[Rfam]
A member of the RNA family "c-di-GMP-II-GAG riboswitch aptamer" from Actinomarinicola tropica, 83 nucleotides long.
The family is grouped with related families in Rfam's "c-di-GMP_II riboswitch clan".
It scores 40 bits against the family's covariance model.
The base pairs follow the family's consensus structure, which is taken from published work.
Its family is annotated with regulation of gene expression and cyclic-di-GMP binding in the Gene Ontology.

RNA sequence: GCCAGCUGGGGAAGCGAUGAUCCACCGGUCCGCAACUGGUCGCUUGGUCGGUGAGGAGCUACAGCGAAACCGUCCCCGCCGAC
Dot-bracket structure: (.(.(.(((((.(((.......(((((((........[[[[[[[..)))))))....)))..]]]]]..]]..)))))).).)